The record is a 182-nucleotide RNA from Capitella teleta, which matches "U2 spliceosomal RNA" in Rfam. Rfam describes the family as follows. U2 is a small nuclear RNA (snRNA) component of the spliceosome (involved in pre-mRNA splicing).
RNA sequence: ACCACUUUUAUAAAAAAAAAAAAAAGUAUCUGUUCUUAUCAGCUUAAUAUCUGAUACGAUCCCCAUUGGGGAUCUACGAUAUUAAACUGAUUUUUGAACUUGGGGGAAGAUGCAGGAGCUUGCUCCGACUUCCCCGCGGGUUGGCUCUGUAUUGCAGUACUUCAGAGAUCGGCCCACUCACC
Numbered sequence: 001a002c003c004a005c006u007u008u009u010a011u012a013a014a015a016a017a018a019a020a021a022a023a024a025a026g027u028a029u030c031u032g033u034u035c036u037u038a039u040c041a042g043c044u045u046a047a048u049a050u051c052u053g054a055u056a057c058g059a060u061c062c063c064c065a066u067u068g069g070g071g072a073u074c075u076a077c078g079a080u081a082u083u084a085a086a087c088u089g090a091u092u093u094u095u096g097a098a099c100u101u102g103g104g105g106g107a108a109g110a111u112g113c114a115g116g117a118g119c120u121u122g123c124u125c126c127g128a129c130u131u132c133c134c135c136g137c138g139g140g141u142u143g144g145c146u147c148u149g150u151a152u153u154g155c156a157g158u159a160c161u162u163c164a165g166a167g168a169u170c171g172g173c174c175c176a177c178u179c180a181c182c
Stems, first nucleotide, its partner, number of pairs: 007016003037056006058074007103135007115126004138175006145167005